[Rfam]
RNA sequence: CCGUGCUAGAUGGGGAGGUAGCGGUGCCCUGUAACUCGCAAUCCGCUAUAGCGAGGUUGAAUUCCUAUUAGAGGUUUUGUCGAUGUAAGGUCUGGCGUCUUUGCGCAGUGUUGACGGCCGGGUCCUUCGCAAUAGGCACCUAUGAAUCUGGUCAGGUCCGGAAGGAAGCAGCCAUAAGUAGGUUCGUCUAUGUGCCGAAGGGAAGCCUAGCCUGAGCUGUUGCACGGAAGUGCCGCUUGGAUCGCAAUUAUCAAUAAUAGGUGCACGG
Numbered sequence: 001c002c003g004u005g006c007u008a009g010a011u012g013g014g015g016a017g018g019u020a021g022c023g024g025u026g027c028c029c030u031g032u033a034a035c036u037c038g039c040a041a042u043c044c045g046c047u048a049u050a051g052c053g054a055g056g057u058u059g060a061a062u063u064c065c066u067a068u069u070a071g072a073g074g075u076u077u078u079g080u081c082g083a084u085g086u087a088a089g090g091u092c093u094g095g096c097g098u099c100u101u102u103g104c105g106c107a108g109u110g111u112u113g114a115c116g117g118c119c120g121g122g123u124c125c126u127u128c129g130c131a132a133u134a135g136g137c138a139c140c141u142a143u144g145a146a147u148c149u150g151g152u153c154a155g156g157u158c159c160g161g162a163a164g165g166a167a168g169c170a171g172c173c174a175u176a177a178g179u180a181g182g183u184u185c186g187u188c189u190a191u192g193u194g195c196c197g198a199a200g201g202g203a204a205g206c207c208u209a210g211c212c213u214g215a216g217c218u219g220u221u222g223c224a225c226g227g228a229a230g231u232g233c234c235g236c237u238u239g240g241a242u243c244g245c246a247a248u249u250a251u252c253a254a255u256a257a258u259a260g261g262u263g264c265a266c267g268g
Base pairs, nucleotide, nucleotide: 001268002267003266004265005264006263009058010057011056012030013029014028015027017025019023035055036054037053038052039051064261065260066259067258068257069256070255073252074251075250081244082243083242084241086239087238088237089236093232094231098228099227100226102224105223106222107218108217109216116212117211118210120208121207122206123205124201125200126199127198128197129196130192131191133190134189135188136187137186138183139182140181141180142179143178149174150173151172152171157166158165159164
Notes:
Rfam assigns this 268-nucleotide RNA sequence from Paenibacillus aquistagni to the family "Bacterial large signal recognition particle RNA". About the family: The signal recognition particle (SRP) is a universally conserved ribonucleoprotein involved in the co-translational targeting of proteins to membranes. The source organism's lineage runs through Bacteria, Bacilli, Caryophanales, Paenibacillaceae and Paenibacillus. Rfam classes the family as a non-coding RNA gene. Pairs were carried over by alignment from the consensus structure, which is taken from published work. A search with the family's covariance model found it, with a score of 202 bits.